The record is a 157-nucleotide sequence from a Lachnospiraceae bacterium, which matches "Clostridiales-1 RNA" in Rfam. The family's consensus secondary structure is taken from published work. The family's RNA type in Rfam is small RNA.
RNA sequence: CCAUGUCAGGGUCAAAAGGUACAAAUCCGAUUGUGCUUGCACAAAGAGGAUUUGGAACUUGGGACCCGCAAAACACGAGCACGUAGCGCUGUUGCGCGGAGUGCGAGUGUUUUAGAAUCGCGAGAGCUGCGAAGCAGCGAAGCGAUUCGUGACAUUG
Numbered sequence: 001c002c003a004u005g006u007c008a009g010g011g012u013c014a015a016a017a018g019g020u021a022c023a024a025a026u027c028c029g030a031u032u033g034u035g036c037u038u039g040c041a042c043a044a045a046g047a048g049g050a051u052u053u054g055g056a057a058c059u060u061g062g063g064a065c066c067c068g069c070a071a072a073a074c075a076c077g078a079g080c081a082c083g084u085a086g087c088g089c090u091g092u093u094g095c096g097c098g099g100a101g102u103g104c105g106a107g108u109g110u111u112u113u114a115g116a117a118u119c120g121c122g123a124g125a126g127c128u129g130c131g132a133a134g135c136a137g138c139g140a141a142g143c144g145a146u147u148c149g150u151g152a153c154a155u156u157g
Stems, first nucleotide, its partner, number of pairs: 001157001003155005010066004016060003020056001022054007031044005070113001072111005079104004086097004115148007126138004